A member of the RNA family "MIR821 microRNA precursor family" from Panicum virgatum, 275 nucleotides long. The base pairs follow the family's consensus structure, which was predicted with RNAalifold.
RNA sequence: GAUUUCAGACGAAAAAGUUAUGAAUAUGAAAGUUGUACAACUCAUCAAGAUCUACAAGUUUUAUUUUGGUCAUUUUAUCAUCCGAUAAGGUUACGCUAACAUUGUUCGCAAAUUUUAUGUAUCUCUAUUAACGUUUAUGAAAUGUUAACAGAGGUACGUAAAAUUUGCGAACAAUGUUAGUGUAACUUUAUCGGAUGAUAAAAUGACCAAAAUAAAACUUGUAGAUCUUGAUGAGUUGUACAACUUUCAUAUUCACGACUUUUUCAUUUGAAAUU
Numbered sequence: 001g002a003u004u005u006c007a008g009a010c011g012a013a014a015a016a017g018u019u020a021u022g023a024a025u026a027u028g029a030a031a032g033u034u035g036u037a038c039a040a041c042u043c044a045u046c047a048a049g050a051u052c053u054a055c056a057a058g059u060u061u062u063a064u065u066u067u068g069g070u071c072a073u074u075u076u077a078u079c080a081u082c083c084g085a086u087a088a089g090g091u092u093a094c095g096c097u098a099a100c101a102u103u104g105u106u107c108g109c110a111a112a113u114u115u116u117a118u119g120u121a122u123c124u125c126u127a128u129u130a131a132c133g134u135u136u137a138u139g140a141a142a143u144g145u146u147a148a149c150a151g152a153g154g155u156a157c158g159u160a161a162a163a164u165u166u167g168c169g170a171a172c173a174a175u176g177u178u179a180g181u182g183u184a185a186c187u188u189u190a191u192c193g194g195a196u197g198a199u200a201a202a203a204u205g206a207c208c209a210a211a212a213u214a215a216a217a218c219u220u221g222u223a224g225a226u227c228u229u230g231a232u233g234a235g236u237u238g239u240a241c242a243a244c245u246u247u248c249a250u251a252u253u254c255a256c257g258a259c260u261u262u263u264u265c266a267u268u269u270g271a272a273a274u275u
Stems, first nucleotide, its partner, number of pairs: 014262006021255001023253002026250002030246013044232010055221013069207007077199005083193010094182006101175012114162002117159006131145006